A member of the RNA family "SAM riboswitch aptamer (S box leader)" from Paludifilum halophilum, 114 nucleotides long. Gene Ontology term of the family: regulation of gene expression. The family's consensus secondary structure is taken from published work.
RNA sequence: AUCUUAUCCAGAGCGACGGAGGGAACUGGCCCGAUGAAGUCCGGCAACCUGCACUCCGACAAUCGUGUAAGGUGCUAACUCCAGCAAAAUGGGUACCAUUUUGGAAGAUAAGGG
Numbered sequence: 001a002u003c004u005u006a007u008c009c010a011g012a013g014c015g016a017c018g019g020a021g022g023g024a025a026c027u028g029g030c031c032c033g034a035u036g037a038a039g040u041c042c043g044g045c046a047a048c049c050u051g052c053a054c055u056c057c058g059a060c061a062a063u064c065g066u067g068u069a070a071g072g073u074g075c076u077a078a079c080u081c082c083a084g085c086a087a088a089a090u091g092g093g094u095a096c097c098a099u100u101u102u103g104g105a106a107g108a109u110a111a112g113g114g
Stems, first nucleotide, its partner, number of pairs: 002113007013042001015041003021032003026084004043076004048072002051068004080106001085103006